[Rfam]
RNA: c-di-GMP-II-GAG riboswitch aptamer
RNA sequence: UGGCGGGGUAGAGGCCAAGAACCGCGUCCCGCUACGACGGGCACCCGAAGGGGCGCGGGGAGCCAGUGGUGCGACCGGCUACCGCCCAC
Numbered sequence: 001u002g003g004c005g006g007g008g009u010a011g012a013g014g015c016c017a018a019g020a021a022c023c024g025c026g027u028c029c030c031g032c033u034a035c036g037a038c039g040g041g042c043a044c045c046c047g048a049a050g051g052g053g054c055g056c057g058g059g060g061a062g063c064c065a066g067u068g069g070u071g072c073g074a075c076c077g078g079c080u081a082c083c084g085c086c087c088a089c
Base pairs, nucleotide, nucleotide: 002089005086006085007083008082009081010080011079013064014063015062022058023057024056025055026054027053028052029051039076040075041072042071043070044069045068